[Rfam]
RNA sequence: UGGAGGACAGAGAAGGUAAGGCAGUUAUGUUCCGUGCUGCCCUCUACCGGUUAUUGCCUCCGACAGCAAAGUGAUGCCAGAAACAUUGGCUUUUCUCUUCUUUCUCCAUGGAAGGGAAUGAGCAAUGCUUUCUUUGCAGACA
Numbered sequence: 001u002g003g004a005g006g007a008c009a010g011a012g013a014a015g016g017u018a019a020g021g022c023a024g025u026u027a028u029g030u031u032c033c034g035u036g037c038u039g040c041c042c043u044c045u046a047c048c049g050g051u052u053a054u055u056g057c058c059u060c061c062g063a064c065a066g067c068a069a070a071g072u073g074a075u076g077c078c079a080g081a082a083a084c085a086u087u088g089g090c091u092u093u094u095c096u097c098u099u100c101u102u103u104c105u106c107c108a109u110g111g112a113a114g115g116g117a118a119u120g121a122g123c124a125a126u127g128c129u130u131u132c133u134u135u136g137c138a139g140a141c142a
Base pairs, nucleotide, nucleotide: 002061003060004059005058006057015048016047017046018045020041021040022039023038024037025036081134082133088129089128092125093124100120102118103117104116106115107114

Shown here is a 142-nucleotide RNA sequence from Monodelphis domestica, a member of the family "Small nucleolar RNA SNORA47".
Gene Ontology terms of the family: nucleolus and RNA processing.
It scores 86 bits against the family's covariance model.
Taxonomically the source falls in Monodelphis (Eukaryota, Bilateria, Tetrapoda, Amniota).
It is annotated as an H/ACA-box small nucleolar RNA.